[Rfam]
RNA: mir-425 microRNA precursor family
RNA sequence: GAACAGCUUUGGAAUGACACGGUCACUCCCGCUGAGCGAGCAGCCACGUGGCCACGGGGAUGUCGUGUCUGCCCAAAGCUCUUU
Numbered sequence: 001g002a003a004c005a006g007c008u009u010u011g012g013a014a015u016g017a018c019a020c021g022g023u024c025a026c027u028c029c030c031g032c033u034g035a036g037c038g039a040g041c042a043g044c045c046a047c048g049u050g051g052c053c054a055c056g057g058g059g060a061u062g063u064c065g066u067g068u069c070u071g072c073c074c075a076a077a078g079c080u081c082u083u084u
Base pairs, nucleotide, nucleotide: 006079007078009076010075011074012073016069017068018067019066020065021064022063023062027059028058029057030056031055033054034053036052037051